[Rfam]
RNA sequence: AAGCGAAGGUUCCCAGCGGAGAGGAAGGACUCUGAUAUGAGACCUCUCUAACACUUGUCGUAAACCCCUUCGUAGAGUAAUGAUUGGCCGAAUCAAAAAACGCUUCAAAUUGUUCUAUUUGGUGCGUUCAGAACCCCUCGGCUAUACGCUA
Dot-bracket structure: ..(((((((..(.(....).).....((.(((......)))....))...................))))))).............(((((.......((.((.(((((........))))).)).)).........))))).........

Source information
The family of this 151-nucleotide RNA from Sesamum indicum is "Small nucleolar RNA snoR145". Rfam classes the family as an H/ACA-box small nucleolar RNA. Rfam 15.1 lists 286 matches to the family in 194 species.